[Rfam]
MIR2655 microRNA precursor family: a 236-nucleotide RNA from Medicago truncatula. The family's consensus secondary structure was predicted with RNAalifold. It scores 222 bits against the family's covariance model.
RNA sequence: CCCAUAAGUAAUAAAAGGUCUGUUUAGGUUCAUUAACUUUAUUUAAAGUAAUGUUUUUGUCCCUUAUGUUAUUUUAAUUAAAAAAAAACGUUAAGUUUAGGGACCAAACUAAUACUAAUUAAUUAAGUUAAGGGACCAAAAUUUAACGUUUUUUUAAAUUAUAUUAACAGAAGAGACCAAACCGAUACUUUAAAUAAAGUUAAGGGACCUAAACGAACCUUUUAUUACUUAUGGGA
Numbered sequence: 001c002c003c004a005u006a007a008g009u010a011a012u013a014a015a016a017g018g019u020c021u022g023u024u025u026a027g028g029u030u031c032a033u034u035a036a037c038u039u040u041a042u043u044u045a046a047a048g049u050a051a052u053g054u055u056u057u058u059g060u061c062c063c064u065u066a067u068g069u070u071a072u073u074u075u076a077a078u079u080a081a082a083a084a085a086a087a088a089c090g091u092u093a094a095g096u097u098u099a100g101g102g103a104c105c106a107a108a109c110u111a112a113u114a115c116u117a118a119u120u121a122a123u124u125a126a127g128u129u130a131a132g133g134g135a136c137c138a139a140a141a142u143u144u145a146a147c148g149u150u151u152u153u154u155u156a157a158a159u160u161a162u163a164u165u166a167a168c169a170g171a172a173g174a175g176a177c178c179a180a181a182c183c184g185a186u187a188c189u190u191u192a193a194a195u196a197a198a199g200u201u202a203a204g205g206g207a208c209c210u211a212a213a214c215g216a217a218c219c220u221u222u223u224a225u226u227a228c229u230u231a232u233g234g235g236a
Base pairs, nucleotide, nucleotide: 002234003233004232005231006230007229008228023213024212025211027209028208029207031205033203034202035201036200037199038198039197040196041195042194043193045191046190047189